Overview
Makes More Granules Regulator RNA (mmgR): an 80-nucleotide RNA from Lichenifustis flavocetrariae.

RNA sequence: UGCACAUGCCCUUCUUGGGCGUUUCCUCCCUAGACUUGGGCUGCUUGUGGCAACACGGGCAGCCCUUUUUUUCGUGCAGG
Numbered sequence: 001u002g003c004a005c006a007u008g009c010c011c012u013u014c015u016u017g018g019g020c021g022u023u024u025c026c027u028c029c030c031u032a033g034a035c036u037u038g039g040g041c042u043g044c045u046u047g048u049g050g051c052a053a054c055a056c057g058g059g060c061a062g063c064c065c066u067u068u069u070u071u072u073c074g075u076g077c078a079g080g
Stems, first nucleotide, its partner, number of pairs: 008020004038065012

The family is grouped with related families in Rfam's "suhB sRNA clan". Gene Ontology terms of the family: DNA-templated transcription, termination, protein binding and response to nitrogen compound. The organism belongs to Lichenifustis, within Bacteria.